[Rfam]
RNA sequence: ACCAACACUCCCAAACACAAGCACUGACUGGAGUUGUUGUGUGCAGUAAGUGCUAUUUGUUGGGGUGGUUUUG
Number, nucleotide and partner (000 for none) at each position: 001a000002c000003c000004a069005a000006c067007a066008c065009u064010c063011c062012c000013a000014a000015a060016c059017a058018c000019a056020a054021g053022c052023a051024c050025u049026g000027a047028c046029u045030g000031g000032a000033g000034u000035u000036g000037u000038u000039g000040u000041g000042u000043g000044c000045a029046g028047u027048a000049a025050g024051u023052g022053c021054u020055a000056u019057u000058u017059g016060u015061u000062g011063g010064g009065g008066u007067g006068g000069u004070u000071u000072u000073g000
The family of this 73-nucleotide sequence from Perca fluviatilis is "miR-430 microRNA precursor family". Lineage of the source: Eukaryota > Eumetazoa > Euteleosteomorpha > Percomorphaceae > Perca. A search with the family's covariance model found it, with a score of 58 bits. Rfam 15.1 lists 24,817 matches to the family in 105 species. The family's consensus secondary structure was predicted with RNAalifold. Clan: mir-290 clan.